RNA sequence: AACUUUUACGAGGUAUCAGCACUUUUCUUUCAUUAGUGGGGAAGGAAGGAUGAAAAAUACAAAGCAGCAGUAGACUUUUAAAGUUUAAAUAGACAGGUCUGAGUGCCUCUUCCAUUUUACUUUAACCCUCCAAAGAAGUAUUCUGAUCCAGUUUCACUGCUGAUCAGCAAGGGUAAGUUGAAAAG
Dot-bracket structure: ..((..(((...)))..)).........(((.((.(.(((((((....((((..((...............((((((.................))))))(....)...)).))))...))))..))).).)).))).........(((..(((..(((.....)))...)))...)..))....
Overview:
The family of this 185-nucleotide sequence from Probosciger aterrimus is "Connexin-43 internal ribosome entry site (IRES)". This family represents the connexin-43 internal ribosome entry site (IRES) which allows cap independent translation during conditions such as heat shock and stress. Lineage of the source: Eukaryota > Metazoa > Archosauria > Theropoda > Probosciger. The family's consensus secondary structure is taken from published work. A reference for the family is Schiavi et al. (1999), "Connexin43 mRNA contains a functional internal ribosome entry site", FEBS Lett. Its family is annotated with ribosome binding in the Gene Ontology.